Source information: A member of the RNA family "TPP riboswitch aptamer (THI element)" from Chelonobacter oris, 105 nucleotides long. Pairs were carried over by alignment from the consensus structure, which is taken from published work. Lineage of the source: Bacteria > Pseudomonadota > Gammaproteobacteria > Pasteurellales > Chelonobacter. Rfam links the family to the GO term thiamine pyrophosphate binding. It scores 66 bits against the family's covariance model.
[Rfam]
RNA sequence: UCUCUCUUGUCGGAGUGCCAAUGAUCUAUUGGCUGAGACCGUAAACCGGGAUCCGUGGAACCUGCUCGGGUUAAGACCUGCGAAGGGAACAAGUCAAUCAUCUUA
Numbered sequence: 001u002c003u004c005u006c007u008u009g010u011c012g013g014a015g016u017g018c019c020a021a022u023g024a025u026c027u028a029u030u031g032g033c034u035g036a037g038a039c040c041g042u043a044a045a046c047c048g049g050g051a052u053c054c055g056u057g058g059a060a061c062c063u064g065c066u067c068g069g070g071u072u073a074a075g076a077c078c079u080g081c082g083a084a085g086g087g088a089a090c091a092a093g094u095c096a097a098u099c100a101u102c103u104u105a
Stems, first nucleotide, its partner, number of pairs: 006093005011055004016049001017033005040048002061086003067080004